[Rfam]
RNA sequence: CAGGUGCUGGACCUGCGGCACCAACACGCCGCUGCUGGGCUGCACCUGUGACGUCGGGGCACAGAGGAAGUGGCUGGUUCUACCCUCAGUGCUCAGAACAGUGGGCACUAAGAAUGGUUUGUAGCCUGACAUUC
Number, nucleotide and partner (000 for none) at each position: 001c000002a000003g000004g060005u059006g000007c057008u056009g055010g054011a000012c000013c000014u000015g000016c000017g000018g000019c000020a000021c000022c000023a000024a049025c048026a047027c000028g000029c000030c000031g000032c000033u000034g000035c000036u000037g000038g000039g000040c000041u000042g000043c000044a000045c000046c000047u026048g025049u024050g000051a000052c000053g000054u010055c009056g008057g007058g000059g005060c004061a000062c000063a000064g000065a000066g000067g000068a000069a000070g000071u000072g126073g125074c124075u000076g000077g000078u000079u000080c117081u116082a115083c000084c000085c112086u111087c000088a000089g000090u107091g106092c105093u104094c103095a102096g000097a000098a000099c000100a000101g000102u095103g094104g093105g092106c091107a090108c000109u000110a000111a086112g085113a000114a000115u082116g081117g080118u000119u000120u000121g000122u000123a000124g074125c073126c072127u000128g000129a000130c000131a000132u000133u000134c000
Rfam assigns this 134-nucleotide sequence from Cnephaeus nilssonii to the family "Small nucleolar RNA SNORA43". Rfam classes the family as an H/ACA-box small nucleolar RNA. Clan: SNORA17 clan. The match comes from Rfam's covariance-model search (113 bits). ACA43 is a member of the H/ACA class of snoRNA that guide the sites of modification of uridines to pseudouridines. The family's consensus secondary structure was predicted with RNAfold.